This 89-nucleotide sequence from Anaerobacillus arseniciselenatis belongs to the Rfam family "c-di-GMP-I riboswitch aptamer". Rfam links the family to the GO term cyclic-di-GMP binding.
[Rfam]
RNA sequence: CGUACGAAAGGGCAAAACCAUUGAAAAAUGGUGACGCAAAGCUACAGGGGCUUCAUUGAAUAAAUUUAAUAUGCCAGCCAGUUUCCGAA
Number, nucleotide and partner (000 for none) at each position: 001c000002g000003u000004a000005c000006g000007a000008a000009a000010g000011g000012g037013c036014a000015a000016a000017a032018c031019c030020a029021u028022u027023g000024a000025a000026a000027a022028a021029u020030g019031g018032u017033g000034a000035c000036g013037c012038a000039a000040a083041g082042c081043u080044a000045c000046a000047g079048g078049g075050g074051c073052u000053u000054c000055a000056u069057u068058g067059a066060a000061u000062a000063a000064a000065u000066u059067u058068a057069a056070u000071a000072u000073g051074c050075c049076a000077g000078c048079c047080a043081g042082u041083u040084u000085c000086c000087g000088a000089a000